[Rfam]
RNA: TPP riboswitch aptamer (THI element)
RNA sequence: AUGAAUCACUAGGGGAGCAAUAUUGCUGAGAAAGACAUGUCUUGACCCUUUGAACCUGAUCUAGGUCAUACUAGCGUAGGGAAGUGAUGGCGGACAAAA
Numbered sequence: 001a002u003g004a005a006u007c008a009c010u011a012g013g014g015g016a017g018c019a020a021u022a023u024u025g026c027u028g029a030g031a032a033a034g035a036c037a038u039g040u041c042u043u044g045a046c047c048c049u050u051u052g053a054a055c056c057u058g059a060u061c062u063a064g065g066u067c068a069u070a071c072u073a074g075c076g077u078a079g080g081g082a083a084g085u086g087a088u089g090g091c092g093g094a095c096a097a098a099a
Stems, first nucleotide, its partner, number of pairs: 006087005011049004016043001017026003033042003055080004061074004